[Rfam]
Nucleotides: 092
Base pairs, nucleotide, nucleotide: 007086008085009084010083011082012081013080020037021036022035023034039072040071041070042068043067046066047065048064052059
Number, partner (000 for none) and nucleotide at each position: 001000c002000u003000u004000c005000c006000c007086g008085u009084u010083g011082c012081g013080g014000g015000a016000g017000a018000g019000c020037g021036c022035g023034g024000u025000u026000g027000c028000c029000c030000a031000c032000a033000a034023c035022c036021g037020c038000c039072g040071c041070c042068g043067a044000a045000g046066g047065c048064g049000c050000a051000a052059u053000u054000c055000a056000c057000c058000c059052g060000g061000a062000a063000u064048c065047g066046c067043u068042c069000a070041g071040g072039c073000a074000a075000a076000a077000g078000g079000a080013c081012c082011g083010c084009a085008a086007c087000a088000a089000c090000c091000g092000g